[Rfam]
RNA sequence: AAUUUUGUUCGUAGGAACAAAGAGAAACAGAUUUAUUCUAUACUCGAUAAGUAUCAAUACGCAAUGUGA
Numbered sequence: 001a002a003u004u005u006u007g008u009u010c011g012u013a014g015g016a017a018c019a020a021a022g023a024g025a026a027a028c029a030g031a032u033u034u035a036u037u038c039u040a041u042a043c044u045c046g047a048u049a050a051g052u053a054u055c056a057a058u059a060c061g062c063a064a065u066g067u068g069a
Stems, first nucleotide, its partner, number of pairs: 003022002006019005043068001045066001051060003
Shown here is a 69-nucleotide RNA sequence from Mikania micrantha, a member of the family "Plastid-clpP 5UTR RNA". It is annotated as a cis-regulatory element. Rfam describes the family as follows. Plastid clpP is a non-coding RNA (ncRNA) recognised in plastids. It was found in the prime untranslated region (5UTR) of a protease complex subunit (clpP) in plastids, suggesting a posible cis-regulatory function. The organism belongs to Mikania, within Eukaryota.